[Rfam]
RNA: Small nucleolar RNA snR80
Organism: Metarhizium majus
RNA sequence: AAAUCCUCGGCUACACUCUGAGAUUGACCAGACUCCACGGUGGUCUAUUUCAAUUUUUGCUCGAGGAAGAAUAAAUCUCAUUGUGGCCCCUUACUCACCGCGACACUCUGGCUUAUUUUGGCCCGCUGAGUGUAGUGGUCCAUUUAUCUGGCCAACAU
Numbered sequence: 001a002a003a004u005c006c007u008c009g010g011c012u013a014c015a016c017u018c019u020g021a022g023a024u025u026g027a028c029c030a031g032a033c034u035c036c037a038c039g040g041u042g043g044u045c046u047a048u049u050u051c052a053a054u055u056u057u058u059g060c061u062c063g064a065g066g067a068a069g070a071a072u073a074a075a076u077c078u079c080a081u082u083g084u085g086g087c088c089c090c091u092u093a094c095u096c097a098c099c100g101c102g103a104c105a106c107u108c109u110g111g112c113u114u115a116u117u118u119u120g121g122c123c124c125g126c127u128g129a130g131u132g133u134a135g136u137g138g139u140c141c142a143u144u145u146a147u148c149u150g151g152c153c154a155a156c157a158u
Stems, first nucleotide, its partner, number of pairs: 007064003019052006026045004085153004098138004103133006